A member of the RNA family "Mammalian CPEB3 ribozyme" from Alligator mississippiensis, 74 nucleotides long. Rfam describes the family as follows. The mammalian CPEB3 ribozyme is a self cleaving RNA located in the second intron of the CPEB3 gene which belongs to a family of genes regulating messenger RNA polyadenylation. This ribozyme is highly conserved and found only in mammals. The CPEB3 ribozyme is structurally and biochemically related to the human hepatitis delta virus (HDV) ribozyme and the HDV ribozyme is proposed to have arisen from the human transcriptome. Its family is annotated with RNA nuclease activity in the Gene Ontology. NCBI's taxonomy places the organism under Eukaryota, Craniata, Sauropsida, Archosauria, Alligator.

RNA sequence: CCAGACUGACAGGCCACAGCAGAGGUGCAGAUGGCAUGGCCAUGUUAGAUUUGAAUGAAUCUGCAAAUUCUGCU
Numbered sequence: 001c002c003a004g005a006c007u008g009a010c011a012g013g014c015c016a017c018a019g020c021a022g023a024g025g026u027g028c029a030g031a032u033g034g035c036a037u038g039g040c041c042a043u044g045u046u047a048g049a050u051u052u053g054a055a056u057g058a059a060u061c062u063g064c065a066a067a068u069u070c071u072g073c074u
Stems, first nucleotide, its partner, number of pairs: 012041004018074007025037003046063007